[Rfam]
RNA sequence: AGCGAAACGGCAAACCCUCCGCAAGGCGGGGACGCAAAGCCACGGGACCUACUGGGUCAGCCGGGCUACCGAAC
Numbered sequence: 001a002g003c004g005a006a007a008c009g010g011c012a013a014a015c016c017c018u019c020c021g022c023a024a025g026g027c028g029g030g031g032a033c034g035c036a037a038a039g040c041c042a043c044g045g046g047a048c049c050u051a052c053u054g055g056g057u058c059a060g061c062c063g064g065g066c067u068a069c070c071g072a073a074c
Stems, first nucleotide, its partner, number of pairs: 010035002015030003019026002033060001038067004043063003046058003
The family of this 74-nucleotide RNA sequence from Cellulomonas sp. SLBN-39 is "c-di-GMP-I-GGC riboswitch aptamer".
Its family is annotated with cyclic-di-GMP binding in the Gene Ontology.
The match comes from Rfam's covariance-model search (59 bits).
Lineage of the source: Bacteria > Bacillati > Actinomycetota > Micrococcales > Cellulomonas.
Rfam 15.1 lists 1,298 matches to the family in 717 species.